The family of this 56-nucleotide RNA from Roseovarius sp. 217 is "terC RNA". It is annotated as a cis-regulatory element. Pairs were carried over by alignment from the consensus structure, which is taken from published work.
RNA sequence: AUGACGGACCGGGCCCCUCUGACGAUGGUCUCCCAUCGUGAUGUCGGACCGUAACA
Numbered sequence: 001a002u003g004a005c006g007g008a009c010c011g012g013g014c015c016c017c018u019c020u021g022a023c024g025a026u027g028g029u030c031u032c033c034c035a036u037c038g039u040g041a042u043g044u045c046g047g048a049c050c051g052u053a054a055c056a
Stems, first nucleotide, its partner, number of pairs: 006050002009047004022039007